This 132-nucleotide RNA from Chloropsis hardwickii belongs to the Rfam family "Small nucleolar RNA SNORA3/SNORA45 family". Taxonomically the source falls in Chloropsis (Eukaryota, Vertebrata, Euteleostomi, Saurischia). Gene Ontology terms of the family: RNA processing and nucleolus. It is annotated as an H/ACA-box small nucleolar RNA. From the family's description: The members of this family belong to the H/ACA class of snoRNAs which are thought to guide the sites of modification of uridines to pseudouridines. It scores 71 bits against the family's covariance model. The literature on the family includes a 2001 paper in EMBO J by Huttenhofer et al., "RNomics: an experimental approach that identifies 201 candidates for novel, small, non-messenger RNAs in mouse".
[Rfam]
Nucleotides: 132
Base pairs, nucleotide, nucleotide: 002060003059004058005057006056007054008053009052014049015048017047018046019045020044021043022042025039026038028036071124072123073122074121076120078118084113085112086111087110088109090107091106092105093104094103095102
Number, partner (000 for none) and nucleotide at each position: 001000c002060c003059c004058g005057a006056g007054a008053c009052u010000a011000u012000a013000g014049a015048g016000u017047c018046g019045c020044a021043u022042c023000u024000g025039g026038g027000c028036c029000u030000g031000c032000c033000u034000g035000u036028g037000c038026u039025c040000c041000u042022g043021g044020u045019g046018u047017g048015c049014u050000g051000g052009a053008g054007u055000c056006c057005u058004c059003g060002g061000a062000c063000a064000g065000g066000a067000a068000c069000c070000a071124c072123u073122a074121a075000u076120c077000u078118c079000u080000g081000u082000u083000c084113a085112c086111u087110g088109g089000c090107u091106g092105a093104g094103c095102c096000c097000u098000g099000c100000c101000u102095g103094g104093c105092u106091c107090a108000g109088u110087c111086g112085g113084u114000c115000a116000c117000c118078g119000u120076g121074u122073u123072a124071g125000u126000g127000a128000c129000a130000g131000c132000a